[Rfam]
RNA sequence: UGUAGGCAUGGAGCGUACGUUGGCACAGGGCAGAACGUACGCAAUCUUGUUUAUCAAAACGGAUAAUACCGAUCAUCUCAUCCUCUUCGAAGCGCUCCAGCGCAUCGCUAAGGCCGGAUUUCACCCCGCGUGGCAAAUCACACUGGGUGACGUCACCGUUGACGAUAACCGUGACGUUUUCGCCCAGACGGGUC
Numbered sequence: 001u002g003u004a005g006g007c008a009u010g011g012a013g014c015g016u017a018c019g020u021u022g023g024c025a026c027a028g029g030g031c032a033g034a035a036c037g038u039a040c041g042c043a044a045u046c047u048u049g050u051u052u053a054u055c056a057a058a059a060c061g062g063a064u065a066a067u068a069c070c071g072a073u074c075a076u077c078u079c080a081u082c083c084u085c086u087u088c089g090a091a092g093c094g095c096u097c098c099a100g101c102g103c104a105u106c107g108c109u110a111a112g113g114c115c116g117g118a119u120u121u122c123a124c125c126c127c128g129c130g131u132g133g134c135a136a137a138u139c140a141c142a143c144u145g146g147g148u149g150a151c152g153u154c155a156c157c158g159u160u161g162a163c164g165a166u167a168a169c170c171g172u173g174a175c176g177u178u179u180u181c182g183c184c185c186a187g188a189c190g191g192g193u194c
Stems, first nucleotide, its partner, number of pairs: 002054007014041006061078004066073002083112002088107001093102003113193003117189001119188003126133002137166003144158003171183004
RNA: Yersinia sRNA 251